[Rfam]
RNA sequence: UUCUUUCGGGUCUGUAGUUGCGAGGCGCGCUUGCGCUUCAAGUCCAAGGCAGACGCGGUCGAAAGGAUCCACGUAAACGGCUUCGCUUCGGCGGGGUCGCGAGCACGGCGCGUUCUAGAGGUAAGUCGCAUCGCCCGUUCAUAUUUCCGCAGCAUGGUGCCGCGGCGGGCGAGAGGGUGAUGGUGAGAGCUCAGCCCCGAUGCGCGGGUGUGGGGUCGAAGACUAGGUCAGCCGGAAGAA
Numbered sequence: 001u002u003c004u005u006u007c008g009g010g011u012c013u014g015u016a017g018u019u020g021c022g023a024g025g026c027g028c029g030c031u032u033g034c035g036c037u038u039c040a041a042g043u044c045c046a047a048g049g050c051a052g053a054c055g056c057g058g059u060c061g062a063a064a065g066g067a068u069c070c071a072c073g074u075a076a077a078c079g080g081c082u083u084c085g086c087u088u089c090g091g092c093g094g095g096g097u098c099g100c101g102a103g104c105a106c107g108g109c110g111c112g113u114u115c116u117a118g119a120g121g122u123a124a125g126u127c128g129c130a131u132c133g134c135c136c137g138u139u140c141a142u143a144u145u146u147c148c149g150c151a152g153c154a155u156g157g158u159g160c161c162g163c164g165g166c167g168g169g170c171g172a173g174a175g176g177g178u179g180a181u182g183g184u185g186a187g188a189g190c191u192c193a194g195c196c197c198c199g200a201u202g203c204g205c206g207g208g209u210g211u212g213g214g215g216u217c218g219a220a221g222a223c224u225a226g227g228u229c230a231g232c233c234g235g236a237a238g239a240a
Base pairs, nucleotide, nucleotide: 001240002239003238004237005236006235007234008233009232012231013230014229015225016224017223018222019221046211048209049059052114053113054112055111056110057109068108069107079097081095082094106218127204128203129202130201131200132171133170134169135168136167137166138165139164175197176196177195178194183190184189
The record is a 240-nucleotide RNA sequence from Berryella intestinalis, which matches "raiA RNA" in Rfam. The match comes from Rfam's covariance-model search (135 bits).